[Rfam]
Nucleotides: 084
Base pairs, nucleotide, nucleotide: 009077010076011075012074013073014072015071016070018068020066021065022064023063024062025061026060027059028058034052035051039047
Number, partner (000 for none) and nucleotide at each position: 001000a002000a003000a004000a005000g006000u007000u008000u009077a010076a011075u012074u013073u014072g015071u016070a017000u018068g019000c020066a021065g022064u023063u024062g025061g026060a027059a028058c029000a030000g031000c032000g033000c034052c035051c036000c037000u038000a039047g040000c041000g042000c043000c044000a045000a046000a047039c048000g049000u050000a051035g052034g053000c054000a055000a056000a057000c058028g059027u060026u061025c062024c063023a064022a065021c066020u067000c068018c069000a070016u071015a072014c073013a074012a075011a076010u077009u078000u079000g080000a081000g082000u083000u084000a
Background:
mir-2807 microRNA precursor family: an 84-nucleotide sequence from Bombyx mori. Pairs were carried over by alignment from the consensus structure, which was predicted with RNAalifold. Rfam links the family to the GO terms miRNA-mediated post-transcriptional gene silencing and RISC complex. For this family Rfam cites "MicroRNAs of Bombyx mori identified by Solexa sequencing" (Liu et al., BMC Genomics, 2010). The organism belongs to Bombyx, within Eukaryota.